[Rfam]
RNA sequence: AAGAUUGCAGUGAUGAAGCAAUAUUUUGUGGACUAGAGUUUCUGAUCUGGGCUUCUUCUCCCAGAAGUUGAAGACAAACCCUUGGCUGUCUGAGUAAUCUU
Numbered sequence: 001a002a003g004a005u006u007g008c009a010g011u012g013a014u015g016a017a018g019c020a021a022u023a024u025u026u027u028g029u030g031g032a033c034u035a036g037a038g039u040u041u042c043u044g045a046u047c048u049g050g051g052c053u054u055c056u057u058c059u060c061c062c063a064g065a066a067g068u069u070g071a072a073g074a075c076a077a078a079c080c081c082u083u084g085g086c087u088g089u090c091u092g093a094g095u096a097a098u099c100u101u
Stems, first nucleotide, its partner, number of pairs: 001101008039073004046066001047064005

The family of this 101-nucleotide RNA sequence from Hibiscus trionum is "Small nucleolar RNA Z157/R69/R10". A search with the family's covariance model found it, with a score of 94 bits. The family's consensus secondary structure was predicted with PFOLD.